The record is a 100-nucleotide RNA from Haloplanus natans, which matches "L4-Archaeoglobi ribosomal protein leades" in Rfam. The family's consensus secondary structure is taken from published work. A reference for the family is Eckert and Weinberg (2020), "Discovery of 20 novel ribosomal leader candidates in bacteria and archaea", BMC Microbiol.
RNA sequence: CUGACGGCCGCGUUCGGGUCAAUUGCGGACUGCAACACCCGAUCUCCCUCCUCACUCCGGACGGACUGGAAGUCAAGGAGGGGGAGCGCGUCGCCAUCAG
Dot-bracket structure: ((((....(((((.((((....(((((...)))))..)))).((((((((((.......................)))))))))))))))......))))